A member of the RNA family "Small nucleolar RNA SNORA53" from Chiloscyllium punctatum, 253 nucleotides long.
A search with the family's covariance model found it, with a score of 140 bits.
The family's RNA type in Rfam is H/ACA-box small nucleolar RNA.
The family's consensus secondary structure was predicted with RNAalifold.
From the family's description: The snoRNA ACA53 belongs to the H/ACA family of pseudouridylation guide snoRNAs.
RNA sequence: AACACAUUUCCUUAGAUCCACCUUUGGGGCAUAUCUGUUUUGCUCUGUUGGCAGAACUCAUUGCAUUGCAGUGAGGUUUUUCAGCUUAGUUAUCAGAUAGUCCACAACUUGUAUGGUUGCAUAGUCAAAGGUGCUUGAGUCAUUGAUGUGUGAGAAUAAUAUACCUGCGUAUUAGCCACAUUGUUCCAAUGUGAACAGUCUGUAUUCAGCAAGCUGUUUUCUGCCAUUGGAACUUGGCUGGUUUGCGGACAUG
Dot-bracket structure: .(((((((..(((((...((((((((((((.((..((.(..(((..((((..(.((((................)))))..))))..))).).))..)))))).(((((.....)))))......)))))))).))))).....))))))).............(((((..(.((((.......(((((((....(((...((.........))......))).)))))))....)))).)..))))).....